The record is a 352-nucleotide RNA sequence from Lachnoclostridium sp. An118, which matches "transfer-messenger RNA" in Rfam. A search with the family's covariance model found it, with a score of 160 bits.

[Rfam]
RNA sequence: GGGCUUGUACUGGUUUCGACGGGGGUUUGGAAGUUGGAGAAGCCAUCCGUAGCGGGACACUACGUUAAAAGUUCCAAUUAAAUAUAAACGCAGACAAUAGAGAAUUAGCGUACGCUGCCUAAUUUUGGCGGCAGUCGGCCUUAGGUCAUCCGCUGCUUAAGAUCCCGGCUUCAACAAGGCGGAGCACUUCGUCCUCAAAGCUUUGAGGGGAUGGAAGACUUUAUGAAGCUACUGAAACCGGAAGCCUGUCAUUAGGCGGCCGGCAGAGGGAAUGUCAAACUAAUGACUGUGAUGGGAGAUGCUCUGAUGGAAAGGCUUUCGGACGCGGGUUCGAUUCCCGCCAGGUCCAUUU
Numbered sequence: 001g002g003g004c005u006u007g008u009a010c011u012g013g014u015u016u017c018g019a020c021g022g023g024g025g026u027u028u029g030g031a032a033g034u035u036g037g038a039g040a041a042g043c044c045a046u047c048c049g050u051a052g053c054g055g056g057a058c059a060c061u062a063c064g065u066u067a068a069a070a071g072u073u074c075c076a077a078u079u080a081a082a083u084a085u086a087a088a089c090g091c092a093g094a095c096a097a098u099a100g101a102g103a104a105u106u107a108g109c110g111u112a113c114g115c116u117g118c119c120u121a122a123u124u125u126u127g128g129c130g131g132c133a134g135u136c137g138g139c140c141u142u143a144g145g146u147c148a149u150c151c152g153c154u155g156c157u158u159a160a161g162a163u164c165c166c167g168g169c170u171u172c173a174a175c176a177a178g179g180c181g182g183a184g185c186a187c188u189u190c191g192u193c194c195u196c197a198a199a200g201c202u203u204u205g206a207g208g209g210g211a212u213g214g215a216a217g218a219c220u221u222u223a224u225g226a227a228g229c230u231a232c233u234g235a236a237a238c239c240g241g242a243a244g245c246c247u248g249u250c251a252u253u254a255g256g257c258g259g260c261c262g263g264c265a266g267a268g269g270g271a272a273u274g275u276c277a278a279a280c281u282a283a284u285g286a287c288u289g290u291g292a293u294g295g296g297a298g299a300u301g302c303u304c305u306g307a308u309g310g311a312a313a314g315g316c317u318u319u320c321g322g323a324c325g326c327g328g329g330u331u332c333g334a335u336u337c338c339c340g341c342c343a344g345g346u347c348c349a350u351u352u
Stems, first nucleotide, its partner, number of pairs: 001348007020321009033308007041300001043295005048064005054075005114132005133170006140161007149182002153178002188215008199230006232269002238263004244257003248287004252282001325341005
Pairs were carried over by alignment from the consensus structure, which is taken from published work.
It is annotated as a non-coding RNA gene.
Bacterial tmRNA, also known as 10Sa RNA or SsrA, is named for its dual tRNA and mRNA-like properties. Its role is to liberate the mRNA from a stalled ribosome. To accomplish this part of the tmRNA is used as a reading frame that ends in a translation stop signal.